RNA sequence: UUAGAUGUGAAUUGAUUUUUGUUUGGAUGCACUUCGUUAAAAAUGAUUCUUAUAAGUUGUUGUUGUUUGGAUAC
Numbered sequence: 001u002u003a004g005a006u007g008u009g010a011a012u013u014g015a016u017u018u019u020u021g022u023u024u025g026g027a028u029g030c031a032c033u034u035c036g037u038u039a040a041a042a043a044u045g046a047u048u049c050u051u052a053u054a055a056g057u058u059g060u061u062g063u064u065g066u067u068u069g070g071a072u073a074c
Stems, first nucleotide, its partner, number of pairs: 011061001013059006021053002025049004030045002033042002
This 74-nucleotide sequence from Medicago truncatula belongs to the Rfam family "MIR5272 microRNA precursor family".
The family has 6 seed sequences and 271 matches in Rfam 15.1.
The family's consensus secondary structure was predicted with RNAalifold.
Gene Ontology terms of the family: RISC complex and miRNA-mediated post-transcriptional gene silencing.
It scores 74 bits against the family's covariance model.
The source organism's lineage runs through Eukaryota, Spermatophyta, Gunneridae, Hologalegina and Medicago.